[Rfam]
Nucleotides: 186
Stems, first nucleotide, its partner, number of pairs: 056130002060127004066121002070117002077111004082091003094103003
Number, partner (000 for none) and nucleotide at each position: 001000a002000a003000c004000c005000g006000c007000a008000u009000c010000a011000a012000c013000u014000g015000c016000u017000a018000g019000u020000g021000a022000u023000u024000g025000u026000u027000a028000a029000a030000c031000u032000c033000a034000a035000c036000a037000c038000u039000a040000a041000u042000a043000a044000c045000a046000u047000a048000c049000c050000g051000a052000g053000a054000a055000a056130g057129c058000u059000a060127u061126c062125c063124u064000u065000u066121u067120c068000a069000a070117g071116g072000a073000c074000a075000g076000g077111c078110c079109u080108c081000a082091a083090c084089c085000u086000u087000c088000g089084g090083g091082u092000u093000g094103c095102u096101u097000u098000u099000c100000g101096g102095a103094g104000c105000a106000c107000a108080g109079a110078g111077g112000a113000u114000c115000u116071u117070c118000g119000c120067g121066a122000u123000u124063a125062g126061g127060g128000u129057g130056c131000a132000c133000u134000c135000a136000a137000a138000u139000u140000c141000c142000u143000g144000u145000c146000a147000u148000u149000u150000a151000g152000g153000a154000g155000u156000u157000u158000a159000a160000u161000u162000a163000g164000u165000c166000u167000c168000a169000g170000u171000u172000g173000a174000u175000g176000c177000g178000g179000c180000c181000c182000c183000a184000u185000a186000a
Shown here is a 186-nucleotide RNA sequence from Alkalitalea saponilacus, a member of the family "Bacteroidales-1 6S-Bacteroidales RNA suggested". The family's RNA type in Rfam is small RNA. A reference for the family is Ryan et al. (2020), "A high-resolution transcriptome map identifies small RNA regulation of metabolism in the gut microbe Bacteroides thetaiotaomicron", Nat Commun.